Annotation:
This 237-nucleotide RNA from Myriangium duriaei belongs to the Rfam family "Small nucleolar RNA snR191".
RNA sequence: CGCCACUGUUAAGUCAAGGCUCCCACCGCACUCGUUGCGACCUCUAUGGAGGGAAUCUGUUACAACUUUGGCAGAAGGAUCUUGACCCGCCGCGUGCUUGCACGUAGAUGGCCUCCGUUUUGGUUGGUUCGUCGAUUUAGGGUCUUCGGGUGUUUCGUUUGAGUUGAGCUACUCGUCUCUUGCUGGUUCACCCAGCAGAGUUUGAUGGAGGCGCUCUUAGUUAUGAUUCACACAUGC
Numbered sequence: 001c002g003c004c005a006c007u008g009u010u011a012a013g014u015c016a017a018g019g020c021u022c023c024c025a026c027c028g029c030a031c032u033c034g035u036u037g038c039g040a041c042c043u044c045u046a047u048g049g050a051g052g053g054a055a056u057c058u059g060u061u062a063c064a065a066c067u068u069u070g071g072c073a074g075a076a077g078g079a080u081c082u083u084g085a086c087c088c089g090c091c092g093c094g095u096g097c098u099u100g101c102a103c104g105u106a107g108a109u110g111g112c113c114u115c116c117g118u119u120u121u122g123g124u125u126g127g128u129u130c131g132u133c134g135a136u137u138u139a140g141g142g143u144c145u146u147c148g149g150g151u152g153u154u155u156c157g158u159u160u161g162a163g164u165u166g167a168g169c170u171a172c173u174c175g176u177c178u179c180u181u182g183c184u185g186g187u188u189c190a191c192c193c194a195g196c197a198g199a200g201u202u203u204g205a206u207g208g209a210g211g212c213g214c215u216c217u218u219a220g221u222u223a224u225g226a227u228u229c230a231c232a233c234a235u236g237c
Base pairs, nucleotide, nucleotide: 003071004070005069017058018057019056021054022053023052024051026049027039028038029037030036082148084144085143086142087141088140092101093100107133108132109131110130111129112126115123116122117121150231151230152229155226156225157224158223166216167215168214169213172210173209174208177207180198181197182196183195184194185193186192
Annotation:
Gene Ontology terms of the family: RNA processing and nucleolus. NCBI's taxonomy places the organism under Eukaryota, Opisthokonta, Fungi, Myriangiales, Myriangium duriaei.